[Rfam]
RNA sequence: CACACACGGAAACCGGGUUGGAUCGAUCGGAACCUCGUUCCGGUCAGGUCUCACCCACCGGUGGCGGCUCUCCGGCCGCUUCUUUCCGUGGAGGCAUAACCGGUCAAAGGACGAUCA
Numbered sequence: 001c002a003c004a005c006a007c008g009g010a011a012a013c014c015g016g017g018u019u020g021g022a023u024c025g026a027u028c029g030g031a032a033c034c035u036c037g038u039u040c041c042g043g044u045c046a047g048g049u050c051u052c053a054c055c056c057a058c059c060g061g062u063g064g065c066g067g068c069u070c071u072c073c074g075g076c077c078g079c080u081u082c083u084u085u086c087c088g089u090g091g092a093g094g095c096a097u098a099a100c101c102g103g104u105c106a107a108a109g110g111a112c113g114a115u116c117a
Base pairs, nucleotide, nucleotide: 001093003091005090006089007088008087009086010085011084015056016055017054018053063080064079065078066077067076068075
RNA: rpsB sRNA